[Rfam]
RNA sequence: AUACACUAUAUUAUGUAUAAAUGUAUACACACUUCCUAUAUAUAUCCAUAUAUAUAUAGUGUAUAUAUUAUACAUGUAUAGGUGUG
Numbered sequence: 001a002u003a004c005a006c007u008a009u010a011u012u013a014u015g016u017a018u019a020a021a022u023g024u025a026u027a028c029a030c031a032c033u034u035c036c037u038a039u040a041u042a043u044a045u046c047c048a049u050a051u052a053u054a055u056a057u058a059g060u061g062u063a064u065a066u067a068u069u070a071u072a073c074a075u076g077u078a079u080a081g082g083u084g085u086g
Base pairs, nucleotide, nucleotide: 001085002084003083004082006081007080008079009078010077011076013075014074015073016072017071018070019069020068022067023066024065025064026063027062028061029060030059037054038053039052040051041050042049043048
mir-568 microRNA precursor family: an 86-nucleotide sequence from Canis lupus. Its family is annotated with RISC complex and miRNA-mediated post-transcriptional gene silencing in the Gene Ontology. Taxonomically the source falls in Canis lupus (Eukaryota, Bilateria, Dipnotetrapodomorpha, Eutheria).